[Rfam]
RNA sequence: GCGGAUGGCCGGAUGACCGCGGCUGCCCAUAGCUCCGCCUUGGCGGAUAGCUGGGGGGUCGAGGAAAGUCCGGACUCCAUGAAGCAUCGGUGCCGGGUAACGCCCGGCGGGGGUAACCCUAGGGAAAGCGCCACAGAGAACCAGACCGCCCGCGCCUUCGGGGGCGGGUAAGGGUGAAACGGUGGGGUAAGAGCCCACCGCGGGACUGGCAACAGGACCGGCACGGCAAGCCCCACCGGGAGCAACGCCGAAUAGGGACCACGCGCCGCGCCGCAAGGCCGGCAGGGGAGCUUCGCCCCGAGUGGUCCGGGUUGGCGGCUUGAUCCUGCGGGCAACCGCAGGGCCAGAGGAAUGGUCAUCCACGGGGCUUCGGCCCCCGGACAGAAUCCGGCUUACAGGCCAUCCGCGCGA
Numbered sequence: 001g002c003g004g005a006u007g008g009c010c011g012g013a014u015g016a017c018c019g020c021g022g023c024u025g026c027c028c029a030u031a032g033c034u035c036c037g038c039c040u041u042g043g044c045g046g047a048u049a050g051c052u053g054g055g056g057g058g059u060c061g062a063g064g065a066a067a068g069u070c071c072g073g074a075c076u077c078c079a080u081g082a083a084g085c086a087u088c089g090g091u092g093c094c095g096g097g098u099a100a101c102g103c104c105c106g107g108c109g110g111g112g113g114u115a116a117c118c119c120u121a122g123g124g125a126a127a128g129c130g131c132c133a134c135a136g137a138g139a140a141c142c143a144g145a146c147c148g149c150c151c152g153c154g155c156c157u158u159c160g161g162g163g164g165c166g167g168g169u170a171a172g173g174g175u176g177a178a179a180c181g182g183u184g185g186g187g188u189a190a191g192a193g194c195c196c197a198c199c200g201c202g203g204g205a206c207u208g209g210c211a212a213c214a215g216g217a218c219c220g221g222c223a224c225g226g227c228a229a230g231c232c233c234c235a236c237c238g239g240g241a242g243c244a245a246c247g248c249c250g251a252a253u254a255g256g257g258a259c260c261a262c263g264c265g266c267c268g269c270g271c272c273g274c275a276a277g278g279c280c281g282g283c284a285g286g287g288g289a290g291c292u293u294c295g296c297c298c299c300g301a302g303u304g305g306u307c308c309g310g311g312u313u314g315g316c317g318g319c320u321u322g323a324u325c326c327u328g329c330g331g332g333c334a335a336c337c338g339c340a341g342g343g344c345c346a347g348a349g350g351a352a353u354g355g356u357c358a359u360c361c362a363c364g365g366g367g368c369u370u371c372g373g374c375c376c377c378c379g380g381a382c383a384g385a386a387u388c389c390g391g392c393u394u395a396c397a398g399g400c401c402a403u404c405c406g407c408g409c410g411a
Base pairs, nucleotide, nucleotide: 001407002406003405004404005403006402007401008400009399010398011396012360013359014358015357016356017355018354020061021060022059023058024057026055027054028053066394067393068392070391071390072389073388074387075242076241077240078239083293084292088238089237090236091235092234093107094106095105096104097103108122109120110119111118112117123233124232128231129230130227131226132225146173147172148169149168150167151166152165153164155162156161181199182198183197184196185195186194200222201220202219203218206215207214208213246317247316248315249314256308257307258306259305260304261303285299286298287297288296324343325342326341327340328339329338330337331336
Shown here is a 411-nucleotide RNA from Pseudothioclava arenosa, a member of the family "Bacterial RNase P class A". Taxonomically the source falls in Pseudothioclava (Bacteria, Pseudomonadati, Pseudomonadota, Paracoccaceae). Clan: RNaseP clan.